[Rfam]
RNA: MIR7504 microRNA precursor family
RNA sequence: AACGGCGCUCCGUGGGGUGUACUUUUUUACACCUCAAGUUUGGUGUUUUUUUAAUUAAAAGAAAAAAAAUAAAAAAACACCAAACUUGAGGUGUAAAAAAGUACACCCCACGGAGCGCCGUU
Numbered sequence: 001a002a003c004g005g006c007g008c009u010c011c012g013u014g015g016g017g018u019g020u021a022c023u024u025u026u027u028u029a030c031a032c033c034u035c036a037a038g039u040u041u042g043g044u045g046u047u048u049u050u051u052u053a054a055u056u057a058a059a060a061g062a063a064a065a066a067a068a069a070u071a072a073a074a075a076a077a078c079a080c081c082a083a084a085c086u087u088g089a090g091g092u093g094u095a096a097a098a099a100a101g102u103a104c105a106c107c108c109c110a111c112g113g114a115g116c117g118c119c120g121u122u
Base pairs, nucleotide, nucleotide: 001122002121003120004119005118006117007116008115009114010113011112012111013110014109015108016107017106018105019104020103021102022101023099024098025097027096028095030093031092032091033090034089035088036087037086038085039084040083042081043080046077047076048075049074